[Rfam]
RNA sequence: UUGUGCCCGCGGUGGGCGAAGCAUAUUUUGUAAAAGUUUUGCGGGCGGCGAAAAUAUGUACAGUCCUGUGACAUAUCGCACGGCGAUAUGCUUUCAAAGCAU
Numbered sequence: 001u002u003g004u005g006c007c008c009g010c011g012g013u014g015g016g017c018g019a020a021g022c023a024u025a026u027u028u029u030g031u032a033a034a035a036g037u038u039u040u041g042c043g044g045g046c047g048g049c050g051a052a053a054a055u056a057u058g059u060a061c062a063g064u065c066c067u068g069u070g071a072c073a074u075a076u077c078g079c080a081c082g083g084c085g086a087u088a089u090g091c092u093u094u095c096a097a098a099g100c101a102u
Base pairs, nucleotide, nucleotide: 005046006045007044008043009042010041011040014066015065017063021059022058023057024056025055026054027053028052036049037048038047072090073089074088075087076086077085
RT-5 RNA: a 102-nucleotide RNA. By type it is a small RNA. It is one of the family's seed sequences. Pairs were carried over by alignment from the consensus structure, which is taken from published work.